[Rfam]
RNA sequence: GGCUGGUCCGAAGGUAGUGGGUUAUCAGAAAAACUAUUAACGUUAGUGUCACUAAAGUUGGUAAACAACCCCCCCCCACUGCUGGAUUUGACUGGCUAAA
Numbered sequence: 001g002g003c004u005g006g007u008c009c010g011a012a013g014g015u016a017g018u019g020g021g022u023u024a025u026c027a028g029a030a031a032a033a034c035u036a037u038u039a040a041c042g043u044u045a046g047u048g049u050c051a052c053u054a055a056a057g058u059u060g061g062u063a064a065a066c067a068a069c070c071c072c073c074c075c076c077c078a079c080u081g082c083u084g085g086a087u088u089u090g091a092c093u094g095g096c097u098a099a100a
Base pairs, nucleotide, nucleotide: 002096003095004094005093006092007091008090010089011088015084016080017079018078019077020076021075027062030059031058